[Rfam]
RNA sequence: AGGUGACUCCUUGGCGCUUGCGCGCUGUUUUGAUGAAGAUUCGCGCCUCUAUCAAAACGGGUAACCCCACCUCCUGGCAAGGCCUUACUGUCAGAUCAAGUCUGAACUUCUACACAUUACGAUCACGGGAGCCAACCGGCACGAUUCGAUGGCAUUCGAGUCCACGCUUGAUGCCAUCCCUGCCGUGGCUGGCCUGACUGGUCAGCCGCGCAAGCGGCCG
Numbered sequence: 001a002g003g004u005g006a007c008u009c010c011u012u013g014g015c016g017c018u019u020g021c022g023c024g025c026u027g028u029u030u031u032g033a034u035g036a037a038g039a040u041u042c043g044c045g046c047c048u049c050u051a052u053c054a055a056a057a058c059g060g061g062u063a064a065c066c067c068c069a070c071c072u073c074c075u076g077g078c079a080a081g082g083c084c085u086u087a088c089u090g091u092c093a094g095a096u097c098a099a100g101u102c103u104g105a106a107c108u109u110c111u112a113c114a115c116a117u118u119a120c121g122a123u124c125a126c127g128g129g130a131g132c133c134a135a136c137c138g139g140c141a142c143g144a145u146u147c148g149a150u151g152g153c154a155u156u157c158g159a160g161u162c163c164a165c166g167c168u169u170g171a172u173g174c175c176a177u178c179c180c181u182g183c184c185g186u187g188g189c190u191g192g193c194c195u196g197a198c199u200g201g202u203c204a205g206c207c208g209c210g211c212a213a214g215c216g217g218c219c220g
Stems, first nucleotide, its partner, number of pairs: 002066003006062002009060002014025004027058009037048002070220001075164003081157002085154001090107002092104005109149002112146001114145001182215002187207005193200001
RNA: Proteobacterial sRNA psRNA2
Organism: Burkholderia plantarii